[Rfam]
RNA sequence: AAAAUCGUCCAAAUUCAAUAUAUUGCAAGGACUGCGUAGGCCU
Numbered sequence: 001a002a003a004a005u006c007g008u009c010c011a012a013a014u015u016c017a018a019u020a021u022a023u024u025g026c027a028a029g030g031a032c033u034g035c036g037u038a039g040g041c042c043u
Stems, first nucleotide, its partner, number of pairs: 005030002008027001010025003
A member of the RNA family "ES036 (CssrF) sRNA" from Escherichia coli, 43 nucleotides long.
Rfam describes the family as follows. Differentially expressed under several chemical stress conditions. Also identified in Shigella as CssrF.
Lineage of the source: Bacteria > Pseudomonadota > Enterobacterales > Escherichia > Escherichia coli O157:H7.
The literature on the family includes a 2015 paper in BMC Genomics by Rau et al., "Differential expression of small RNAs under chemical stress and fed-batch fermentation in E. coli".
It scores 39 bits against the family's covariance model.